[Rfam]
RNA sequence: CGACGGAGAAGCCAGGUCACGUCUCUGCAGUUACACCGCUCACGCGUGCCUGCUGGGGUGGAACCUGGUCUGUCU
Numbered sequence: 001c002g003a004c005g006g007a008g009a010a011g012c013c014a015g016g017u018c019a020c021g022u023c024u025c026u027g028c029a030g031u032u033a034c035a036c037c038g039c040u041c042a043c044g045c046g047u048g049c050c051u052g053c054u055g056g057g058g059u060g061g062a063a064c065c066u067g068g069u070c071u072g073u074c075u
Stems, first nucleotide, its partner, number of pairs: 002074005011069007020060006027053004034048003
About this RNA
The family of this 75-nucleotide RNA sequence from Catagonus wagneri is "mir-370 microRNA precursor family". Pairs were carried over by alignment from the consensus structure, which was predicted with RNAalifold. NCBI's taxonomy places the organism under Eukaryota, Metazoa, Bilateria, Dipnotetrapodomorpha, Catagonus. Rfam links the family to the GO terms cell aging, RISC complex and miRNA-mediated post-transcriptional gene silencing.